A member of the RNA family "LOOT RNA", 120 nucleotides long. It is annotated as a small RNA.
[Rfam]
RNA sequence: CACCUAAACUCUAAAUUUUAGAGCACGGUAUAAAUAAAUCCAUCCCUGGCAGUAAGAUCCUCAUUGGAACACCAGGAAUGGUCAUACCUCGAAAGAGGUAUGGGUGAUCGAAAGAUCAUC
Numbered sequence: 001c002a003c004c005u006a007a008a009c010u011c012u013a014a015a016u017u018u019u020a021g022a023g024c025a026c027g028g029u030a031u032a033a034a035u036a037a038a039u040c041c042a043u044c045c046c047u048g049g050c051a052g053u054a055a056g057a058u059c060c061u062c063a064u065u066g067g068a069a070c071a072c073c074a075g076g077a078a079u080g081g082u083c084a085u086a087c088c089u090c091g092a093a094a095g096a097g098g099u100a101u102g103g104g105u106g107a108u109c110g111a112a113a114g115a116u117c118a119u120c
Stems, first nucleotide, its partner, number of pairs: 002029003009023006040081004045076005053069001058068003083102008103120006
Dot-bracket structure: .(((....((((((...))))))...)))..........((((.(((((...(....(((.....))))..))))).)))).((((((((....))))))))((((((......))))))